[Rfam]
RNA sequence: GCCCGAGUGGCGGAAUUGGUAGACGCGUUGGAUUCAAAAUCCAAUGCCGCAAGGCGUGCCGGUUCGAUUCCGGCCUCGGGUA
Numbered sequence: 001g002c003c004c005g006a007g008u009g010g011c012g013g014a015a016u017u018g019g020u021a022g023a024c025g026c027g028u029u030g031g032a033u034u035c036a037a038a039a040u041c042c043a044a045u046g047c048c049g050c051a052a053g054g055c056g057u058g059c060c061g062g063u064u065c066g067a068u069u070c071c072g073g074c075c076u077c078g079g080g081u082a
Stems, first nucleotide, its partner, number of pairs: 001081007010026003028044005058074005
Background: tRNA: an 82-nucleotide RNA from Amylibacter sp. SFDW26. It is annotated as a transfer RNA. The family's consensus secondary structure is taken from published work.